[Rfam]
Record summary:
The record is an 83-nucleotide RNA from Senna tora, which matches "Small nucleolar RNA U54" in Rfam. The family's RNA type in Rfam is C/D-box small nucleolar RNA. On this family, see Chen et al., Nucleic Acids Res 2003: "The high diversity of snoRNAs in plants: identification and comparative study of 120 snoRNA genes from Oryza sativa". The base pairs follow the family's consensus structure, which was predicted with PFOLD. Rfam links the family to the GO terms RNA processing and nucleolus. Rfam 15.1 lists 614 matches to the family in 206 species.
RNA sequence: UGCUCUGUGAUUACUUGCCUUUGUUGCAGUAUACGCUAUUCCGAUCCAAAUGCUGAGGGAAAGUUUCAUAAUAAAUGAGAGCU
Number, nucleotide and partner (000 for none) at each position: 001u000002g082003c081004u080005c079006u000007g000008u000009g000010a000011u000012u000013a000014c000015u000016u000017g000018c000019c000020u000021u000022u000023g000024u000025u000026g000027c000028a000029g000030u000031a000032u000033a000034c000035g000036c000037u000038a000039u000040u000041c000042c000043g000044a000045u000046c000047c000048a000049a000050a000051u000052g000053c000054u000055g000056a000057g000058g000059g000060a000061a000062a000063g000064u000065u000066u000067c000068a000069u000070a000071a000072u000073a000074a000075a000076u000077g000078a000079g005080a004081g003082c002083u000